[Rfam]
RNA sequence: UCGGGUUUCAUCGUCGCCCUCGACACUCACAGCGAAGUGUUGAGGUAGGCAUGUAGCCCGAAA
Numbered sequence: 001u002c003g004g005g006u007u008u009c010a011u012c013g014u015c016g017c018c019c020u021c022g023a024c025a026c027u028c029a030c031a032g033c034g035a036a037g038u039g040u041u042g043a044g045g046u047a048g049g050c051a052u053g054u055a056g057c058c059c060g061a062a063a
Stems, first nucleotide, its partner, number of pairs: 001061006009053003013050003018045010

mir-7594 microRNA precursor family: a 63-nucleotide sequence from Caenorhabditis briggsae. Rfam's curators put it in the seed alignment. Rfam links the family to the GO terms RISC complex and miRNA-mediated post-transcriptional gene silencing.